[Rfam]
RNA sequence: GCUGGUGAAAAUGAUGACUUUACUUUUUUCCCCAUCUAAUCGACCAUGUUGAUAUGCUUGAAUACUUGCCAGUUGGUUCUGAUACACCGGC
Numbered sequence: 001g002c003u004g005g006u007g008a009a010a011a012u013g014a015u016g017a018c019u020u021u022a023c024u025u026u027u028u029u030c031c032c033c034a035u036c037u038a039a040u041c042g043a044c045c046a047u048g049u050u051g052a053u054a055u056g057c058u059u060g061a062a063u064a065c066u067u068g069c070c071a072g073u074u075g076g077u078u079c080u081g082a083u084a085c086a087c088c089g090g091c
Stems, first nucleotide, its partner, number of pairs: 001091007009083001